Record summary: Rfam assigns this 129-nucleotide RNA sequence from Fukomys damarensis to the family "U11 spliceosomal RNA". Its family is annotated with mRNA 5'-splice site recognition, pre-mRNA 5'-splice site binding and U11 snRNP in the Gene Ontology. By type it is a spliceosomal small nuclear RNA.
RNA sequence: GAGGCUUCUCUCAUGAGUGGCACAUGUGGGCAACUUGCUUGCUUUGUGUGUGGAAUCUAUAUCAAGAGAUUUCAGAAGCAUCAUUUUUUGGUGCUUGGGAAGCUGGUGAUCAUUGGUCUUGGAACUCUU
Numbered sequence: 001g002a003g004g005c006u007u008c009u010c011u012c013a014u015g016a017g018u019g020g021c022a023c024a025u026g027u028g029g030g031c032a033a034c035u036u037g038c039u040u041g042c043u044u045u046g047u048g049u050g051u052g053g054a055a056u057c058u059a060u061a062u063c064a065a066g067a068g069a070u071u072u073c074a075g076a077a078g079c080a081u082c083a084u085u086u087u088u089u090g091g092u093g094c095u096u097g098g099g100a101a102g103c104u105g106g107u108g109a110u111c112a113u114u115g116g117u118c119u120u121g122g123a124a125c126u127c128u129u
Stems, first nucleotide, its partner, number of pairs: 004079005009022001011020003023050006029043005051074007097127003103122004108118004
About this RNA
Rfam 15.1 lists 2,595 matches to the family in 1,202 species. The organism belongs to Fukomys, within Eukaryota.